[Rfam]
RNA sequence: CGGUUCGCCCCAUCUGGAAGACUAGUGAUUUUGUUGUUGUUUCGCUACACCCAACAACAAGUCCCAGUCUGCCUCAUGGUGCUGGCCA
Numbered sequence: 001c002g003g004u005u006c007g008c009c010c011c012a013u014c015u016g017g018a019a020g021a022c023u024a025g026u027g028a029u030u031u032u033g034u035u036g037u038u039g040u041u042u043c044g045c046u047a048c049a050c051c052c053a054a055c056a057a058c059a060a061g062u063c064c065c066a067g068u069c070u071g072c073c074u075c076a077u078g079g080u081g082c083u084g085g086c087c088a
Stems, first nucleotide, its partner, number of pairs: 002087004007082002010079004016073002019070005025065001027063005033058006
A member of the RNA family "mir-7 microRNA precursor family" from Puma concolor, 88 nucleotides long.
Rfam describes the family as follows. This family represents the microRNA (miRNA) precursor mir-7.
The match comes from Rfam's covariance-model search (72 bits).